[Rfam]
RNA sequence: GCGGCUCCGGCUCCCGCCGUCAGUCUGGGCGACCCGGCGGCC
Numbered sequence: 001g002c003g004g005c006u007c008c009g010g011c012u013c014c015c016g017c018c019g020u021c022a023g024u025c026u027g028g029g030c031g032a033c034c035c036g037g038c039g040g041c042c
Base pairs, nucleotide, nucleotide: 003042004041005040007037008036009035010034015031016030017029018028021027022026